Shown here is a 236-nucleotide RNA sequence from Selenihalanaerobacter shriftii, a member of the family "T-box leader". The family's RNA type in Rfam is cis-regulatory leader.
[Rfam]
RNA sequence: UUAAUUACGAUAAUAGAGAAGAGUAGAUAAUGCUGAAGUCUUUAGCGAGUUAGGGAUAGUGAAAGCCUAGUGGCUAAGAUAUUAUUGAAUAUCAUCUCUUAGUAGUUAACCUGAAAUCAUUAGUAAGGUUUAACCGGUUGCAGCCGUUAUUUGUUUUAGAGAUAAAAAUAUUAAUUCUUUUUUAUAAUUAGUAUUUUUAAAUAGGGUGGUACCGCAAGUUAAUCCUUGCCCCUGAC
Numbered sequence: 001u002u003a004a005u006u007a008c009g010a011u012a013a014u015a016g017a018g019a020a021g022a023g024u025a026g027a028u029a030a031u032g033c034u035g036a037a038g039u040c041u042u043u044a045g046c047g048a049g050u051u052a053g054g055g056a057u058a059g060u061g062a063a064a065g066c067c068u069a070g071u072g073g074c075u076a077a078g079a080u081a082u083u084a085u086u087g088a089a090u091a092u093c094a095u096c097u098c099u100u101a102g103u104a105g106u107u108a109a110c111c112u113g114a115a116a117u118c119a120u121u122a123g124u125a126a127g128g129u130u131u132a133a134c135c136g137g138u139u140g141c142a143g144c145c146g147u148u149a150u151u152u153g154u155u156u157u158a159g160a161g162a163u164a165a166a167a168a169u170a171u172u173a174a175u176u177c178u179u180u181u182u183u184a185u186a187a188u189u190a191g192u193a194u195u196u197u198u199a200a201a202u203a204g205g206g207u208g209g210u211a212c213c214g215c216a217a218g219u220u221a222a223u224c225c226u227u228g229c230c231c232c233u234g235a236c
Stems, first nucleotide, its partner, number of pairs: 007103002016098004026086006038074003049071006106133002108130005135146003164198013203233004214229005
Rfam 15.1 lists 19,395 matches to the family in 1,923 species. Rfam links the family to the GO term tRNA binding.